[Rfam]
RNA sequence: UGCUUAUAGAGAAAGACGGAGGGAUUAGACCCUGCGAUGUCUUGGCAACCUGUAACUUACAAGGUGCUACAUUCUACUCGGUCCGCCGACUUUAUGGAUCGAGACAGAUAAGCG
Numbered sequence: 001u002g003c004u005u006a007u008a009g010a011g012a013a014a015g016a017c018g019g020a021g022g023g024a025u026u027a028g029a030c031c032c033u034g035c036g037a038u039g040u041c042u043u044g045g046c047a048a049c050c051u052g053u054a055a056c057u058u059a060c061a062a063g064g065u066g067c068u069a070c071a072u073u074c075u076a077c078u079c080g081g082u083c084c085g086c087c088g089a090c091u092u093u094a095u096g097g098a099u100c101g102a103g104a105c106a107g108a109u110a111a112g113c114g
Base pairs, nucleotide, nucleotide: 001114002113003112004111005110006109007108013043014042015041016040017039021032022031023030026076027075028074029073044068045067046066047065049064050063051061052060053059054058072106077103078102079101080100081099082098083097084096085095
The family of this 114-nucleotide sequence from Mucilaginibacter auburnensis is "SAM riboswitch aptamer (S box leader)". The organism belongs to Mucilaginibacter, within Bacteria. It scores 66 bits against the family's covariance model.